[Rfam]
RNA sequence: UUUCCCCCACAACGGCUUCCUGAAGUGGCGGGCAACUUUAACUGGAGCA
Numbered sequence: 001u002u003u004c005c006c007c008c009a010c011a012a013c014g015g016c017u018u019c020c021u022g023a024a025g026u027g028g029c030g031g032g033c034a035a036c037u038u039u040a041a042c043u044g045g046a047g048c049a
Stems, first nucleotide, its partner, number of pairs: 004031002007028004013022002015048003019045002

The record is a 49-nucleotide RNA sequence from Falsihalocynthiibacter arcticus, which matches "SAM/SAH riboswitch aptamer" in Rfam.
Pairs were carried over by alignment from the consensus structure, which is taken from published work.
A search with the family's covariance model found it, with a score of 52 bits.
For this family Rfam cites "The structure of the SAM/SAH-binding riboswitch" (Weickhmann et al., Nucleic Acids Res, 2019).